[Rfam]
This 342-nucleotide RNA sequence from Sphingomonas taxi belongs to the Rfam family "Alphaproteobacteria transfer-messenger RNA". A search with the family's covariance model found it, with a score of 211 bits. Its Rfam clan is "tRNA clan". Taxonomically the source falls in Sphingomonas (Bacteria, Pseudomonadati, Pseudomonadota, Sphingomonadales). Bacterial tmRNA, also known as 10Sa RNA or SsrA, is named for its dual tRNA and mRNA-like properties. Its role is to liberate the mRNA from a stalled ribosome. To accomplish this part of the tmRNA is used as a reading frame that ends in a translation stop signal. The broken mRNA is replaced in the ribosome by the tmRNA and translation of the tmRNA leads to addition of a proteolysis tag to the incomplete protein enabling recognition by a protease. Recently a number of permuted tmRNA genes have been found encoded in two parts. tmRNAs have been identified in eubacteria and some chloroplasts but are absent from archaeal and eukaryote nuclear genomes. The family's consensus secondary structure is taken from published work.
RNA sequence: UGGAUUGCAGCGGCUGCACGUUGCGCCUAUAUGACACUCGCCGGCUUCCAGCCGGCUAUGGCGAUAAACGGUGGCGUUGAAUAGACGCAGCGGACCCGGGGGCAGUACCCGGCGGCUCCACCACCGCAGCUGAGCGAUCAGCUUCGAUGACGGGGCCGAACUAGGAUCGACGUGUGUUGAAGGGCGCUGUCUUUCGCUCGGAAUGGGACCACCGCAACGGCCCAUUACACAAGUGCCAACGAUAACGAAGCACUCGCGAUUGCGGCGUAACUGAGGGCCUAACGGCCUGAGGUUAUUCCAAGAUUACGCGGUUGGACCCACCGGGCAACAGAAGGGAUUCCA
Numbered sequence: 001u002g003g004a005u006u007g008c009a010g011c012g013g014c015u016g017c018a019c020g021u022u023g024c025g026c027c028u029a030u031a032u033g034a035c036a037c038u039c040g041c042c043g044g045c046u047u048c049c050a051g052c053c054g055g056c057u058a059u060g061g062c063g064a065u066a067a068a069c070g071g072u073g074g075c076g077u078u079g080a081a082u083a084g085a086c087g088c089a090g091c092g093g094a095c096c097c098g099g100g101g102g103c104a105g106u107a108c109c110c111g112g113c114g115g116c117u118c119c120a121c122c123a124c125c126g127c128a129g130c131u132g133a134g135c136g137a138u139c140a141g142c143u144u145c146g147a148u149g150a151c152g153g154g155g156c157c158g159a160a161c162u163a164g165g166a167u168c169g170a171c172g173u174g175u176g177u178u179g180a181a182g183g184g185c186g187c188u189g190u191c192u193u194u195c196g197c198u199c200g201g202a203a204u205g206g207g208a209c210c211a212c213c214g215c216a217a218c219g220g221c222c223c224a225u226u227a228c229a230c231a232a233g234u235g236c237c238a239a240c241g242a243u244a245a246c247g248a249a250g251c252a253c254u255c256g257c258g259a260u261u262g263c264g265g266c267g268u269a270a271c272u273g274a275g276g277g278c279c280u281a282a283c284g285g286c287c288u289g290a291g292g293u294u295a296u297u298c299c300a301a302g303a304u305u306a307c308g309c310g311g312u313u314g315g316a317c318c319c320a321c322c323g324g325g326c327a328a329c330a331g332a333a334g335g336g337a338u339u340c341c342a
Base pairs, nucleotide, nucleotide: 040056041055042054043053044052060198061197062196063195064194070191071190072189074187075186076185077184086176087175088174090173091172092171096112097111098110099109100108113158114157115156116155117154118153119152199214200213201212204224205223206222209220210219309323310322311321312320314341315340316339319336